A member of the RNA family "Glycine riboswitch aptamer" from Microbacterium aurantiacum, 92 nucleotides long. The pairing is the family consensus, mapped onto this sequence. The match comes from Rfam's covariance-model search (66 bits).
RNA sequence: ACGACCCGGACGGGAGAGCCCUGGCUUCGGCCAGGCACCGAAGGAGCAAGCCUCCCCGCCAAUCUCUCAGGUACGCGUACCGUCCCGGUCGG
Numbered sequence: 001a002c003g004a005c006c007c008g009g010a011c012g013g014g015a016g017a018g019c020c021c022u023g024g025c026u027u028c029g030g031c032c033a034g035g036c037a038c039c040g041a042a043g044g045a046g047c048a049a050g051c052c053u054c055c056c057c058g059c060c061a062a063u064c065u066c067u068c069a070g071g072u073a074c075g076c077g078u079a080c081c082g083u084c085c086c087g088g089u090c091g092g
Stems, first nucleotide, its partner, number of pairs: 006087001008085006020035004037072003040068002044066003050059002